[Rfam]
Nucleotides: 106
Base pairs, nucleotide, nucleotide: 001106002105003104004103005102006101007100008099013042014041015040016039017038021031022030023029025080026079027078028077043072044071045070046069048068049067051064052063053062054061076098081095082094083093084092085091086090
Number, partner (000 for none) and nucleotide at each position: 001106u002105u003104c004103u005102u006101a007100u008099c009000a010000a011000g012000a013042g014041a015040g016039g017038c018000g019000g020000a021031g022030g023029g024000a025080c026079u027078g028077g029023c030022c031021c032000u033000a034000c035000g036000a037000u038017g039016c040015c041014u042013c043072g044071g045070c046069a047000g048068c049067g050000g051064a052063c053062u054061c055000a056000a057000u058000a059000g060000a061054g062053a063052g064051u065000g066000c067049u068048g069046u070045g071044c072043c073000a074000a075000a076098u077028c078027c079026a080025g081095c082094a083093a084092g085091c086090g087000a088000u089000a090086u091085g092084c093083u094082u095081g096000a097000u098076a099008g100007a101006u102005g103004a104003g105002a106001a